[Rfam]
RNA sequence: AGAUCAACAGAUGAUGUGAUUGGGCUGUUAAUCCACGUUAGUGGACUUGACUCAGGAAAGUCCCCGGGCCGAUUUCCGCAGAAAUGAGGACCUGGAAACAGGUUAAGCUUCAGAGCAUAAGAAGUCCAGUUGGGCCAGCAAUGGUUUUGACGGGCUCAAGUGUUGAGCCUAUUGGAUUCUGGCUUGAAGUGGGUUUGGCCGAAAAUACAGUCAUUCACAUCGGUCCAUCUGUGACCUAACUGAACGGGGAUUACAAUCUGCUGGUC
Numbered sequence: 001a002g003a004u005c006a007a008c009a010g011a012u013g014a015u016g017u018g019a020u021u022g023g024g025c026u027g028u029u030a031a032u033c034c035a036c037g038u039u040a041g042u043g044g045a046c047u048u049g050a051c052u053c054a055g056g057a058a059a060g061u062c063c064c065c066g067g068g069c070c071g072a073u074u075u076c077c078g079c080a081g082a083a084a085u086g087a088g089g090a091c092c093u094g095g096a097a098a099c100a101g102g103u104u105a106a107g108c109u110u111c112a113g114a115g116c117a118u119a120a121g122a123a124g125u126c127c128a129g130u131u132g133g134g135c136c137a138g139c140a141a142u143g144g145u146u147u148u149g150a151c152g153g154g155c156u157c158a159a160g161u162g163u164u165g166a167g168c169c170u171a172u173u174g175g176a177u178u179c180u181g182g183c184u185u186g187a188a189g190u191g192g193g194u195u196u197g198g199c200c201g202a203a204a205a206u207a208c209a210g211u212c213a214u215u216c217a218c219a220u221c222g223g224u225c226c227a228u229c230u231g232u233g234a235c236c237u238a239a240c241u242g243a244a245c246g247g248g249g250a251u252u253a254c255a256a257u258c259u260g261c262u263g264g265u266c
Base pairs, nucleotide, nucleotide: 002266003265004264005263006262008260009259010258011257014220015219016218017217018216019215022053023052024051058252059251062249063248064247065246077088079086080085089104090103091102092101093100094099107190108189110187111186112185114184115183116182120180121179122178123177132170133169134168135167154163155162222236223235224234225233

The record is a 266-nucleotide RNA from Mikania micrantha, which matches "RNase MRP" in Rfam.
The family's RNA type in Rfam is ribozyme.
Taxonomically the source falls in Mikania (Eukaryota, asterids, Asterales, Eupatorieae).
Its Rfam clan is "RNaseP clan".